[Rfam]
RNA: SAM riboswitch aptamer (S box leader)
RNA sequence: CUCUUAUUAAGAGAGGCCGAGGGAACUGGCCCUAUGACGCCCAGCAACCAAGCUUUUGCUAAGGUGCUAAGUCCAGCAGCAUUGUCUGAAAAAUGAGAG
Numbered sequence: 001c002u003c004u005u006a007u008u009a010a011g012a013g014a015g016g017c018c019g020a021g022g023g024a025a026c027u028g029g030c031c032c033u034a035u036g037a038c039g040c041c042c043a044g045c046a047a048c049c050a051a052g053c054u055u056u057u058g059c060u061a062a063g064g065u066g067c068u069a070a071g072u073c074c075a076g077c078a079g080c081a082u083u084g085u086c087u088g089a090a091a092a093a094u095g096a097g098a099g
Stems, first nucleotide, its partner, number of pairs: 001099008013042001015041003021032003026076004043068004048064002051060003072091001077088003